The record is an 87-nucleotide sequence from Carya illinoinensis, which matches "mir-156 microRNA precursor family" in Rfam. The base pairs follow the family's consensus structure, which was predicted with PFOLD. The family has 10 seed sequences and 1,401 matches in Rfam 15.1. A reference for the family is Ambros (2001), "microRNAs: tiny regulators with great potential", Cell. The source organism's lineage runs through Eukaryota, Streptophyta, Streptophytina, Embryophyta and Carya. This family represents the plant microRNA (miRNA) precursor mir-156.

RNA sequence: GUGACAGAAGAGAGUGAGCACACAAGGUGUUUUUCGUGCAUGGACCUCCACGCAUGAAGCUCUGCGUGCUUACUCUCUAUCUGUCAC
Numbered sequence: 001g002u003g004a005c006a007g008a009a010g011a012g013a014g015u016g017a018g019c020a021c022a023c024a025a026g027g028u029g030u031u032u033u034u035c036g037u038g039c040a041u042g043g044a045c046c047u048c049c050a051c052g053c054a055u056g057a058a059g060c061u062c063u064g065c066g067u068g069c070u071u072a073c074u075c076u077c078u079a080u081c082u083g084u085c086a087c
Base pairs, nucleotide, nucleotide: 001087002086003085004084005083006082007081008080010077011076012075013074014073015072016071017070018069019068020067021066023064024063